[Rfam]
RNA sequence: CUGGCUCCGGUUCACGUCGUCGCACCAUGCACCGACGACCCGGCGGCC
Numbered sequence: 001c002u003g004g005c006u007c008c009g010g011u012u013c014a015c016g017u018c019g020u021c022g023c024a025c026c027a028u029g030c031a032c033c034g035a036c037g038a039c040c041c042g043g044c045g046g047c048c
Stems, first nucleotide, its partner, number of pairs: 003048003007043004015037005022030002
The record is a 48-nucleotide RNA sequence, which matches "L31-Actinobacteria ribosomal protein leader" in Rfam. By type it is a cis-regulatory leader. On this family, see Eckert and Weinberg, BMC Microbiol 2020: "Discovery of 20 novel ribosomal leader candidates in bacteria and archaea". It is one of the family's seed sequences.